[Rfam]
RNA sequence: GUGUAUCGCCAGGGGUGCCUGCCCCGGACGGGCGGGCUGAGAUCACACCCUCCGAACCUGAACCGGUUAGCGCCGGCGUAGGGAGGCGAAUCUGUUCACCU
Dot-bracket structure: .....(((((((((.(((((((((.....)))))))).......)..)))).....((((..((((......))))..))))..)))))............